[Rfam]
RNA sequence: ACGUCUUUGUGUUGUUUGCUGAUUGAUUUACCAAGAUCAGCGAUUGUCAAACAGGACGUAAAUAAAUUCUAAAGCCUCGUUAUAGUCUUAAAACAGCUUUUUCGGCGCUAAGACUUCUCCAUACUUUAGAAACAGUA
Numbered sequence: 001a002c003g004u005c006u007u008u009g010u011g012u013u014g015u016u017u018g019c020u021g022a023u024u025g026a027u028u029u030a031c032c033a034a035g036a037u038c039a040g041c042g043a044u045u046g047u048c049a050a051a052c053a054g055g056a057c058g059u060a061a062a063u064a065a066a067u068u069c070u071a072a073a074g075c076c077u078c079g080u081u082a083u084a085g086u087c088u089u090a091a092a093a094c095a096g097c098u099u100u101u102u103c104g105g106c107g108c109u110a111a112g113a114c115u116u117c118u119c120c121a122u123a124c125u126u127u128a129g130a131a132a133c134a135g136u137a
Base pairs, nucleotide, nucleotide: 002058003057004056005055006054007053010049011048016043017042018041019040020039021038022037084115085114086113087112088111094107